Overview:
The family of this 272-nucleotide RNA sequence from Vanderwaltozyma polyspora is "Small nucleolar RNA snR11". For this family Rfam cites "A yeast small nuclear RNA is required for normal processing of pre-ribosomal RNA" (Tollervey, EMBO J, 1987). Taxonomically the source falls in Vanderwaltozyma polyspora (Eukaryota, Dikarya, saccharomyceta, Saccharomycetaceae).

[Rfam]
RNA sequence: AACAAUGUCUUUUAUAUAGACACCCAGAGUCACGAAACGUUCUGGUCUUUGUACCGGUGGAUGUCUAUACUAUUUAUGUUUUAUUUAUUUAGAAUAUUAAAUUGUGUACGGUCAUAGCAGAAUACCACUGUUAUGAUUGUCGUGCUCGCGGUUGAUCUUAGAUCAAUGUUUGUUGAACCUUACCAAUAUGGGGUACACAGACGGUAAAGUUUAUCAAUGCUGGGGGUACUAAUUUUAUUGUGCCUUUUAUUCGGUAUCCUUUACUAACAUCU
Numbered sequence: 001a002a003c004a005a006u007g008u009c010u011u012u013u014a015u016a017u018a019g020a021c022a023c024c025c026a027g028a029g030u031c032a033c034g035a036a037a038c039g040u041u042c043u044g045g046u047c048u049u050u051g052u053a054c055c056g057g058u059g060g061a062u063g064u065c066u067a068u069a070c071u072a073u074u075u076a077u078g079u080u081u082u083a084u085u086u087a088u089u090u091a092g093a094a095u096a097u098u099a100a101a102u103u104g105u106g107u108a109c110g111g112u113c114a115u116a117g118c119a120g121a122a123u124a125c126c127a128c129u130g131u132u133a134u135g136a137u138u139g140u141c142g143u144g145c146u147c148g149c150g151g152u153u154g155a156u157c158u159u160a161g162a163u164c165a166a167u168g169u170u171u172g173u174u175g176a177a178c179c180u181u182a183c184c185a186a187u188a189u190g191g192g193g194u195a196c197a198c199a200g201a202c203g204g205u206a207a208a209g210u211u212u213a214u215c216a217a218u219g220c221u222g223g224g225g226g227u228a229c230u231a232a233u234u235u236u237a238u239u240g241u242g243c244c245u246u247u248u249a250u251u252c253g254g255u256a257u258c259c260u261u262u263a264c265u266a267a268c269a270u271c272u
Stems, first nucleotide, its partner, number of pairs: 018158003021154002024151002032143004039084002047078001049076001051074001052072002057068004088108001096105002109139012167203007204264004209259001212256004224245006
Rfam classes the family as an H/ACA-box small nucleolar RNA.